[Rfam]
RNA sequence: CGAGCAAGCUGGACAGCCGCGAAAUGCUAGGGCCGAAAGGCUGCAUUUUGAGGAAAGUCCGGGCUUCACAGGGCAGGAUAGCGGUUAACGACCGCCGAGGGCGACCUUAGGGAAAGUGCAACAGAGAUAUACCGCCGUGGCAACAUGGUAAGGGUGGAAAGGCGAGGUAAGAGCUCACCGGCGCAUAGGAGACUAUGCGGCCCUGCAAACCCUAUCCGGAGCAACACCGCUGCGGGGAUGGCUGGCCCGGCCAUAGUUCCCCCAUGGUGGCUUGAGCUGCGCGGCAACGCGUAGACUAGAUAGAUGGCUGUCCACGACAGAACCCGGCUUAUAGGCUUGGUCGCAAA
Dot-bracket structure: (((.((((((((((((((.((((((((...............))))))))....[[[.[[[[[((((...[[[[.((((((((((.....)))))(((((....)))).)((...(((((...........((((((((....))))))..)).......((.(((.......))).)).((((((((....))))))).)..)))..)))))))))))))...((((......(((((((((.]]]])))))...)))).....)))).......(((((((....)))))))...........)))))))..........]]]]]]]].).)))))).)))....
RNA: Bacterial RNase P class A